The record is an 80-nucleotide RNA from Loigolactobacillus bifermentans, which matches "L17 ribosomal protein downstream element" in Rfam. The base pairs follow the family's consensus structure, which is taken from published work. The organism belongs to Loigolactobacillus bifermentans, within Bacteria. The family's RNA type in Rfam is cis-regulatory element.

RNA sequence: AGAGUGUUAUGAUGUUGGUUAGUUGUUUUUCCAAGUCUAGCUCGACGGUUGUCACAAUAGUGGACUUUUGCCCUAUUGUG
Numbered sequence: 001a002g003a004g005u006g007u008u009a010u011g012a013u014g015u016u017g018g019u020u021a022g023u024u025g026u027u028u029u030u031c032c033a034a035g036u037c038u039a040g041c042u043c044g045a046c047g048g049u050u051g052u053c054a055c056a057a058u059a060g061u062g063g064a065c066u067u068u069u070g071c072c073c074u075a076u077u078g079u080g
Base pairs, nucleotide, nucleotide: 002043003042004041005040011037012036013035017032018031021028022027053080054079055078056077057076058075059074060073
Dot-bracket structure: .((((.....(((...((..((....))..))..)))..)))).........((((((((............))))))))